[Rfam]
RNA sequence: UCUACUUCUAAACGAUGUAACCCUACCUACUUUACAUCCUUGCAACUCCUUGGUUGCGCCAGCAUGAAUAAAUGAAUAGAAAUCAU
Numbered sequence: 001u002c003u004a005c006u007u008c009u010a011a012a013c014g015a016u017g018u019a020a021c022c023c024u025a026c027c028u029a030c031u032u033u034a035c036a037u038c039c040u041u042g043c044a045a046c047u048c049c050u051u052g053g054u055u056g057c058g059c060c061a062g063c064a065u066g067a068a069u070a071a072a073u074g075a076a077u078a079g080a081a082a083u084c085a086u
Stems, first nucleotide, its partner, number of pairs: 035066002039062002041058007
Shown here is an 86-nucleotide RNA from Dellaglioa algida, a member of the family "BsrC".
The family's RNA type in Rfam is small RNA.
The 301 nucleotide sequence from Kouji Nakamura has been trimmed to a highly conserved ~85 nucleotide long core to form this family.
It scores 56 bits against the family's covariance model.
For this family Rfam cites "Novel small RNA-encoding genes in the intergenic regions of Bacillus subtilis" (Saito et al., Gene, 2008).
The family's consensus secondary structure was predicted with CMfinder.
The source organism's lineage runs through Bacteria, Bacillati, Bacillota, Lactobacillales and Dellaglioa algida.